[Rfam]
RNA sequence: ACAAUUCAGGUCUGUGGUUGAAAGUCGAUGCCAGUUGCAGGCAAAACGAUCCACGUAAGCAGCGGAAUCCGCUGUGAGCACGGUGCAGCUUAGAAGUAAGACCUGCCGCAAAAUGCGAGAGGAGCAGUAGUGGGGAGCCAGGACGCUUAGGAGCGAGCCUUCCAGCAGGCGAGUGUGGGGGCGAAGACCAGGUCAGCUGAAUUGU
Numbered sequence: 001a002c003a004a005u006u007c008a009g010g011u012c013u014g015u016g017g018u019u020g021a022a023a024g025u026c027g028a029u030g031c032c033a034g035u036u037g038c039a040g041g042c043a044a045a046a047c048g049a050u051c052c053a054c055g056u057a058a059g060c061a062g063c064g065g066a067a068u069c070c071g072c073u074g075u076g077a078g079c080a081c082g083g084u085g086c087a088g089c090u091u092a093g094a095a096g097u098a099a100g101a102c103c104u105g106c107c108g109c110a111a112a113a114u115g116c117g118a119g120a121g122g123a124g125c126a127g128u129a130g131u132g133g134g135g136a137g138c139c140a141g142g143a144c145g146c147u148u149a150g151g152a153g154c155g156a157g158c159c160u161u162c163c164a165g166c167a168g169g170c171g172a173g174u175g176u177g178g179g180g181g182c183g184a185a186g187a188c189c190a191g192g193u194c195a196g197c198u199g200a201a202u203u204g205u
Base pairs, nucleotide, nucleotide: 001205002204003203004202005201006200007199008198009197012196013195014194015190016189017188018187019186028176029175030174031041033090034089035088036087037086038085039084050083051082058075064069081183102169103168104167105166106165107117108116109115121162122161123160124159130154131153136147137146138145

The record is a 205-nucleotide sequence, which matches "raiA RNA" in Rfam. The base pairs follow the family's consensus structure, which is taken from published work.